[Rfam]
RNA sequence: UAGCAAUGAGCGGGAGAGAGCCAGCACGCUGGCCGCCGAAGGAGCAACUGCCCCGGAAACUCUCAGGCACCCAGGACCGCUUCGUUGCC
Number, nucleotide and partner (000 for none) at each position: 001u000002a000003g000004c000005a000006a000007u000008g082009a081010g080011c079012g078013g077014g000015a000016g000017a000018g000019a000020g033021c032022c031023a030024g000025c000026a000027c000028g000029c000030u023031g022032g021033c020034c000035g068036c067037c066038g064039a063040a000041g000042g062043a061044g060045c000046a000047a000048c055049u000050g000051c000052c000053c000054c000055g048056g000057a000058a000059a000060c044061u043062c042063u039064c038065a000066g037067g036068c035069a000070c000071c000072c000073a000074g000075g000076a000077c013078c012079g011080c010081u009082u008083c000084g000085u000086u000087g000088c000089c000
RNA: Glycine riboswitch aptamer
Organism: Microvirga mediterraneensis